RNA sequence: UGGAUCAAGGAUGACAUCUAGUGUCAUGUGAUUCGUACGCCAUGGACACCUUGUGACUGGAAUUCUGAGGUCCAG
Numbered sequence: 001u002g003g004a005u006c007a008a009g010g011a012u013g014a015c016a017u018c019u020a021g022u023g024u025c026a027u028g029u030g031a032u033u034c035g036u037a038c039g040c041c042a043u044g045g046a047c048a049c050c051u052u053g054u055g056a057c058u059g060g061a062a063u064u065c066u067g068a069g070g071u072c073c074a075g
Stems, first nucleotide, its partner, number of pairs: 002073005
The record is a 75-nucleotide RNA sequence from Chinchilla lanigera, which matches "Small nucleolar RNA SNORD113/SNORD114 family" in Rfam. The match comes from Rfam's covariance-model search (61 bits). NCBI's taxonomy places the organism under Eukaryota, Opisthokonta, Amniota, Eutheria, Chinchilla. The base pairs follow the family's consensus structure, which is taken from published work. It is annotated as a C/D-box small nucleolar RNA. Its Rfam clan is "SNORD74 clan". The imprinted human domain at 14q32 contains two clusters of tandemly repeated small nucleolar RNAs named 14q(I) and 14q(II) snoRNAs. These two clusters are named SNORD113 and SNORD114 respectively in the HGNC approved gene symbol nomenclature. The snoRNAs found in both clusters are clearly related and are represented here by a single family.